[Rfam]
RNA: Guanidine-II riboswitch aptamer (mini-ykkC)
RNA sequence: GCAGGAGGACGACCUCCCCCGUCAUGGGCAUUCAAUCCGGGACGACCCGG
Numbered sequence: 001g002c003a004g005g006a007g008g009a010c011g012a013c014c015u016c017c018c019c020c021g022u023c024a025u026g027g028g029c030a031u032u033c034a035a036u037c038c039g040g041g042a043c044g045a046c047c048c049g050g
Stems, first nucleotide, its partner, number of pairs: 001020001004017005037050005